Shown here is a 391-nucleotide RNA sequence from a Pseudobdellovibrionaceae bacterium, a member of the family "Bacterial RNase P class A". It is annotated as a ribozyme.

[Rfam]
RNA sequence: AUGGUUUUGCGGGUAAUCACUGCUGAUGUAGCAAUACACCAGGAGAGGAAAGUCCGGGCUUCAAAGAGCAACGUCUGGGGUAACGCCCCUCUACCGUAAGGUAAGGAACAGUGGAACAGAAAGAAUAUCCGAGACUAUGAUCCUUAGAUCGGGAACGGGAGAUUUAAGGGGAGUUGGCGGAGUGAAAACAGCUAAACUCGACGUGAAGCAAGAUCAAAUAGGGAAACAUUGUAAAGGUAACUUUACAUAACAGCGGCUCGCUAGUGGUUUCCGGGUCAGAUCGCUUGAGCCUUAGAGUAAUUUAAGGCCUAGAGGAAUGCUUACCGAAGUGUGUGAGGAUUUUGGGAACAAACACAUGGAACAGAACUCGGCUUAUAGCAAAACCAACCCA
Numbered sequence: 001a002u003g004g005u006u007u008u009g010c011g012g013g014u015a016a017u018c019a020c021u022g023c024u025g026a027u028g029u030a031g032c033a034a035u036a037c038a039c040c041a042g043g044a045g046a047g048g049a050a051a052g053u054c055c056g057g058g059c060u061u062c063a064a065a066g067a068g069c070a071a072c073g074u075c076u077g078g079g080g081u082a083a084c085g086c087c088c089c090u091c092u093a094c095c096g097u098a099a100g101g102u103a104a105g106g107a108a109c110a111g112u113g114g115a116a117c118a119g120a121a122a123g124a125a126u127a128u129c130c131g132a133g134a135c136u137a138u139g140a141u142c143c144u145u146a147g148a149u150c151g152g153g154a155a156c157g158g159g160a161g162a163u164u165u166a167a168g169g170g171g172a173g174u175u176g177g178c179g180g181a182g183u184g185a186a187a188a189c190a191g192c193u194a195a196a197c198u199c200g201a202c203g204u205g206a207a208g209c210a211a212g213a214u215c216a217a218a219u220a221g222g223g224a225a226a227c228a229u230u231g232u233a234a235a236g237g238u239a240a241c242u243u244u245a246c247a248u249a250a251c252a253g254c255g256g257c258u259c260g261c262u263a264g265u266g267g268u269u270u271c272c273g274g275g276u277c278a279g280a281u282c283g284c285u286u287g288a289g290c291c292u293u294a295g296a297g298u299a300a301u302u303u304a305a306g307g308c309c310u311a312g313a314g315g316a317a318u319g320c321u322u323a324c325c326g327a328a329g330u331g332u333g334u335g336a337g338g339a340u341u342u343u344g345g346g347a348a349c350a351a352a353c354a355c356a357u358g359g360a361a362c363a364g365a366a367c368u369c370g371g372c373u374u375a376u377a378g379c380a381a382a383a384c385c386a387a388c389c390c391a
Stems, first nucleotide, its partner, number of pairs: 002386009011376001012325005018319001020045002023042003027038002050374003054371005059208004066259004071204005077089004091105001092103004106199002111197002113193002128181004212282004222272006252262003289308008